[Rfam]
The record is a 266-nucleotide sequence from Terrisporobacter othiniensis, which matches "Bacterial large signal recognition particle RNA" in Rfam.
About the family: The signal recognition particle (SRP) is a universally conserved ribonucleoprotein involved in the co-translational targeting of proteins to membranes.
The family is grouped with related families in Rfam's "SRP clan".
RNA sequence: CUGUACUAGAUGGGGAGGUAGCGGUGCCCUGUAACCUGCAAUCCGCUAUAGCAGGAUUGAAUUCCAUCUAGAGGUUUUUACUUUGUGGAGCUGCCCAGAAUAAGUGGUGUUGAUGCUUAGGUCCUGUGCAAUGUAAGCUCAUGAACUCCGUCAGAUCCGGAAGGAAGCAGCGGUAAGUGAUUCCUUGCAUGUGACAUAGGAGUGCCUAGGUUGAGCUAACUGUUUUGGUAACGUCUGUGAAGUAUUAAUCAAUAGAUGGUGUACAG
Numbered sequence: 001c002u003g004u005a006c007u008a009g010a011u012g013g014g015g016a017g018g019u020a021g022c023g024g025u026g027c028c029c030u031g032u033a034a035c036c037u038g039c040a041a042u043c044c045g046c047u048a049u050a051g052c053a054g055g056a057u058u059g060a061a062u063u064c065c066a067u068c069u070a071g072a073g074g075u076u077u078u079u080a081c082u083u084u085g086u087g088g089a090g091c092u093g094c095c096c097a098g099a100a101u102a103a104g105u106g107g108u109g110u111u112g113a114u115g116c117u118u119a120g121g122u123c124c125u126g127u128g129c130a131a132u133g134u135a136a137g138c139u140c141a142u143g144a145a146c147u148c149c150g151u152c153a154g155a156u157c158c159g160g161a162a163g164g165a166a167g168c169a170g171c172g173g174u175a176a177g178u179g180a181u182u183c184c185u186u187g188c189a190u191g192u193g194a195c196a197u198a199g200g201a202g203u204g205c206c207u208a209g210g211u212u213g214a215g216c217u218a219a220c221u222g223u224u225u226u227g228g229u230a231a232c233g234u235c236u237g238u239g240a241a242g243u244a245u246u247a248a249u250c251a252a253u254a255g256a257u258g259g260u261g262u263a264c265a266g
Stems, first nucleotide, its partner, number of pairs: 001266006009058003012030004017025001019023001035055005064259007073250004079244010092230002096227006104220002106217003115211008123200006129191002132189005137182001139180004148173004156165003